[Rfam]
RNA: SAM riboswitch aptamer (S box leader)
RNA sequence: UUCUUAUCAAGAGAGGCAGAGGGAUAUGGCCCUGUGACGCCUCGGCAGCGGACUCCGGUGACGAAUGGAGAACUGUGCCAAUUCCAUCGAGCUUACCUUACCGAUAGGCUCGAAAGAUAAGAA
Numbered sequence: 001u002u003c004u005u006a007u008c009a010a011g012a013g014a015g016g017c018a019g020a021g022g023g024a025u026a027u028g029g030c031c032c033u034g035u036g037a038c039g040c041c042u043c044g045g046c047a048g049c050g051g052a053c054u055c056c057g058g059u060g061a062c063g064a065a066u067g068g069a070g071a072a073c074u075g076u077g078c079c080a081a082u083u084c085c086a087u088c089g090a091g092c093u094u095a096c097c098u099u100a101c102c103g104a105u106a107g108g109c110u111c112g113a114a115a116g117a118u119a120a121g122a123a
Stems, first nucleotide, its partner, number of pairs: 001123008013043005021032003026087004044079004049075002053070005083115001088112008